[Rfam]
RNA sequence: CCGUGAACUCUCUGUAAGUCGCUUUGGAUAAAAGCGUCUGCUAAAUGACAAAAU
Numbered sequence: 001c002c003g004u005g006a007a008c009u010c011u012c013u014g015u016a017a018g019u020c021g022c023u024u025u026g027g028a029u030a031a032a033a034g035c036g037u038c039u040g041c042u043a044a045a046u047g048a049c050a051a052a053a054u
Stems, first nucleotide, its partner, number of pairs: 013043001014041003020036006
RNA: UnaL2 LINE 3' element